Background:
Shown here is a 90-nucleotide RNA sequence from Roseomonas acroporae, a member of the family "Repression of heat shock gene expression (ROSE) element". Lineage of the source: Bacteria > Pseudomonadati > Pseudomonadota > Roseomonadaceae > Roseomonas. About the family: This family represents a 5' UTR cis-regulatory element found in heat shock mRNAs and is known as the ROSE (repression of heat shock gene expression) element. The ROSE element is a negative regulator of heat shock gene expression. The secondary structure is thought to be regulated by temperature.

RNA sequence: CCAGACGCCACGUUGCGGGUCUGGCUGGCGCCGCGAAGGCGCCUUCUGCUCAUACCCAUGUUGCUCAGUGGAGGAUAUGGCUAUGGAGCU
Numbered sequence: 001c002c003a004g005a006c007g008c009c010a011c012g013u014u015g016c017g018g019g020u021c022u023g024g025c026u027g028g029c030g031c032c033g034c035g036a037a038g039g040c041g042c043c044u045u046c047u048g049c050u051c052a053u054a055c056c057c058a059u060g061u062u063g064c065u066c067a068g069u070g071g072a073g074g075a076u077a078u079g080g081c082u083a084u085g086g087a088g089c090u
Stems, first nucleotide, its partner, number of pairs: 001024006008018002027046002030043001032041003049088002051085004056080007064073003